[Rfam]
RNA sequence: GUCAUAUGGCGUCCACCUGAGUGACUUUAGUGGACAUGUAUAGUUUCCAACUAAGGCACGCGGUGAAUGCCACGUGGC
Number, nucleotide and partner (000 for none) at each position: 001g000002u000003c076004a075005u074006a000007u000008g000009g070010c069011g068012u067013c000014c065015a064016c063017c000018u000019g000020a000021g061022u060023g059024a000025c056026u055027u054028u053029a052030g051031u050032g000033g000034a000035c000036a000037u000038g000039u000040a000041u000042a000043g000044u000045u000046u000047c000048c000049a000050a031051c030052u029053a028054a027055g026056g025057c000058a000059c023060g022061c021062g000063g016064u015065g014066a000067a012068u011069g010070c009071c000072a000073c000074g005075u004076g003077g000078c000